[Rfam]
RNA sequence: AGAUGUAAAGAUAAAAACACAGUUCCGGUUGGUAGUCCGGACGUAGCUAUAGCUAUCAGUAACCUGCCUCCUUGGUUGUCCAUUCUUUGCUUAGUUAUU
Numbered sequence: 001a002g003a004u005g006u007a008a009a010g011a012u013a014a015a016a017a018c019a020c021a022g023u024u025c026c027g028g029u030u031g032g033u034a035g036u037c038c039g040g041a042c043g044u045a046g047c048u049a050u051a052g053c054u055a056u057c058a059g060u061a062a063c064c065u066g067c068c069u070c071c072u073u074g075g076u077u078g079u080c081c082a083u084u085c086u087u088u089g090c091u092u093a094g095u096u097a098u099u
Stems, first nucleotide, its partner, number of pairs: 005090007022042002025040004043056005066076003
azaaromatic riboswitch aptamer (yjdF RNA): a 99-nucleotide RNA from Clostridium vincentii. The organism belongs to Clostridium, within Bacteria.